[Rfam]
Nucleotides: 447
Base pairs, nucleotide, nucleotide: 001388002387003386004385005384006383011024012023013022014021015020026135027132028131029130030129031128032127036120037119038118040117041116042115043114044113046111047110052105053103054102059098060097061096063094064093065092066091067090072087073086074085075084076083077082139163140162141161142160143159144158145157146156147155168179169178170177183360184359185358186357187356188355189354193350194349195348202347204346205345206344207343208342209341227321228320231318232317233316234315235314236313237312238311239310240309248305249304250303251302252301254278255277256276259273260272261271279283284299288297289296362377363374364373365372366371389442392438393437394436395435396434397433398432399431400430407426408425409424410423411422412421413420414419
Number, partner (000 for none) and nucleotide at each position: 001388c002387c003386u004385c005384u006383c007000g008000a009000a010000a011024c012023a013022u014021g015020c016000c017000g018000u019000a020015g021014c022013a023012u024011g025000a026135c027132c028131u029130g030129g031128c032127u033000g034000g035000a036120g037119a038118u039000a040117g041116a042115c043114g044113g045000u046111g047110a048000g049000g050000u051000a052105g053103a054102g055000c056000a057000c058000u059098g060097a061096c062000u063094g064093g065092a066091g067090g068000a069000g070000u071000u072087g073086g074085g075084g076083g077082a078000g079000a080000a081000a082077u083076u084075c085074c086073u087072c088000a089000c090067c091066u092065u093064c094063c095000u096061g097060u098059c099000a100000a101000a102054c103053u104000c105052c106000g107000a108000a109000u110047u111046c112000c113044c114043c115042g116041u117040c118038g119037u120036c121000g122000a123000a124000g125000a126000a127032g128031g129030c130029u131028g132027g133000a134000a135026g136000u137000c138000c139163g140162c141161a142160c143159u144158a145157c146156g147155g148000g149000g150000u151000a152000a153000g154000c155147u156146u157145g158144u159143a160142g161141u162140g163139c164000g165000u166000a167000a168179g169178g170177g171000a172000a173000a174000g175000a176000a177170c178169c179168c180000a181000g182000a183360c184359u185358g186357u187356g188355g189354u190000u191000a192000a193350u194349g195348u196000c197000c198000c199000u200000c201000a202347g203000u204346g205345u206344a207343g208342g209341u210000u211000a212000a213000g214000u215000g216000u217000c218000a219000a220000u221000a222000c223000u224000a225000a226000a227321a228320g229000a230000u231318g232317u233316c234315c235314u236313a237312g238311g239310c240309c241000a242000a243000a244000g245000a246000c247000a248305a249304c250303u251302g252301g253000a254278a255277g256276g257000u258000g259273a260272g261271c262000u263000u264000a265000g266000a267000a268000g269000c270000a271261g272260c273259u274000a275000c276256c277255c278254u279283u280000u281000a282000a283279a284299a285000a286000g287000u288297g289296c290000g291000u292000a293000a294000c295000a296289g297288c298000u299284u300000a301252c302251c303250a304249g305248u306000c307000g308000a309240g310239g311238u312237u313236u314235a315234g316233g317232g318231c319000g320228c321227u322000g323000a324000a325000a326000a327000u328000g329000g330000a331000c332000g333000g334000g335000g336000c337000u338000a339000a340000a341209a342208c343207c344206u345205a346204c347202c348195a349194c350193a351000g352000a353000u354189a355188c356187c357186a358185c359184a360183g361000a362377c363374c364373a365372c366371c367000g368000c369000a370000a371366g372365g373364u374363g375000a376000u377362g378000g379000c380000g381000u382000a383006g384005a385004g386003a387002g388001g389442c390000g391000c392438u393437c394436u395435g396434c397433a398432u399431g400430g401000g402000u403000g404000g405000a406000a407426g408425c409424a410423g411422g412421g413420g414419u415000g416000u417000a418000a419414g420413c421412u422411c423410c424409u425408g426407u427000g428000g429000a430400c431399c432398g433397u434396g435395u436394a437393g438392a439000a440000u441000u442389g443000a444000g445000a446000a447000u